[Rfam]
RNA sequence: AGGGAAGUUGUCAGUGAUGGAAAAUUAUUCAUCUGAAAGUGAUGAUGUAAUAUAACAUUUCGUCACUACCACUGAGACAACUGAACU
Numbered sequence: 001a002g003g004g005a006a007g008u009u010g011u012c013a014g015u016g017a018u019g020g021a022a023a024a025u026u027a028u029u030c031a032u033c034u035g036a037a038a039g040u041g042a043u044g045a046u047g048u049a050a051u052a053u054a055a056c057a058u059u060u061c062g063u064c065a066c067u068a069c070c071a072c073u074g075a076g077a078c079a080a081c082u083g084a085a086c087u
Base pairs, nucleotide, nucleotide: 001087002086006082007081008080009079010078011077012076

Shown here is an 87-nucleotide RNA from Salvator merianae, a member of the family "Small nucleolar RNA SNORD70".
Gene Ontology terms of the family: nucleolus and RNA processing.
Pairs were carried over by alignment from the consensus structure.
The family has 21 seed sequences and 1,085 matches in Rfam 15.1.
The literature on the family includes a 2001 paper in EMBO J by Huttenhofer et al., "RNomics: an experimental approach that identifies 201 candidates for novel, small, non-messenger RNAs in mouse".